[Rfam]
RNA: tRNA
Organism: Hyunsoonleella pacifica
RNA sequence: AAGCUUAUAGUGAAUAGGAUAACACGCCAGAAUACGACUCUGGGAAUAUGGGUUCGAGUCCUGUUAAGCUUA
Numbered sequence: 001a002a003g004c005u006u007a008u009a010g011u012g013a014a015u016a017g018g019a020u021a022a023c024a025c026g027c028c029a030g031a032a033u034a035c036g037a038c039u040c041u042g043g044g045a046a047u048a049u050g051g052g053u054u055c056g057a058g059u060c061c062u063g064u065u066a067a068g069c070u071u072a
Stems, first nucleotide, its partner, number of pairs: 001071007010025003027043005048064005